[Rfam]
RNA: Glycine riboswitch aptamer
Organism: Aneurinibacillus danicus
RNA sequence: GGACGAAUCUCUGGAGAGACUCCCUUCUGUCACCCAAACGACAUGAAGGAAACAGAGCACCGAAGGAGCAAAUCUGCCUGUUUGGCGGAUAAUCUCUCAGGUAAAAGGACAGGGACAAGCGA
Numbered sequence: 001g002g003a004c005g006a007a008u009c010u011c012u013g014g015a016g017a018g019a020c021u022c023c024c025u026u027c028u029g030u031c032a033c034c035c036a037a038a039c040g041a042c043a044u045g046a047a048g049g050a051a052a053c054a055g056a057g058c059a060c061c062g063a064a065g066g067a068g069c070a071a072a073u074c075u076g077c078c079u080g081u082u083u084g085g086c087g088g089a090u091a092a093u094c095u096c097u098c099a100g101g102u103a104a105a106a107g108g109a110c111a112g113g114g115a116c117a118a119g120c121g122a
Stems, first nucleotide, its partner, number of pairs: 008115006020057003059102003062098002066096003072090006
Dot-bracket structure: .......((((((......(((................................))).(((((..(((...((((((.......))))))...))))).))).......)))))).......